[Rfam]
Background
Shown here is a 97-nucleotide RNA from Volvox reticuliferus, a member of the family "Small nucleolar RNA Z159/U59". For this family Rfam cites "The high diversity of snoRNAs in plants: identification and comparative study of 120 snoRNA genes from Oryza sativa" (Chen et al., Nucleic Acids Res, 2003). Taxonomically the source falls in Volvox (Eukaryota, Chlorophyta, Chlorophyceae, Volvocaceae). Its Rfam clan is "SNORD59 clan". It is annotated as a C/D-box small nucleolar RNA.
RNA sequence: UUCGUGGAUGAUGUUAUCAUAACUUUCGUUCUACCGAGUUAGGGUCGGCACUGCCACCCUGUGGUGAGACAAUUUUGGAGACCUGAACUGACACGAA
Numbered sequence: 001u002u003c004g005u006g007g008a009u010g011a012u013g014u015u016a017u018c019a020u021a022a023c024u025u026u027c028g029u030u031c032u033a034c035c036g037a038g039u040u041a042g043g044g045u046c047g048g049c050a051c052u053g054c055c056a057c058c059c060u061g062u063g064g065u066g067a068g069a070c071a072a073u074u075u076u077g078g079a080g081a082c083c084u085g086a087a088c089u090g091a092c093a094c095g096a097a
Stems, first nucleotide, its partner, number of pairs: 003095004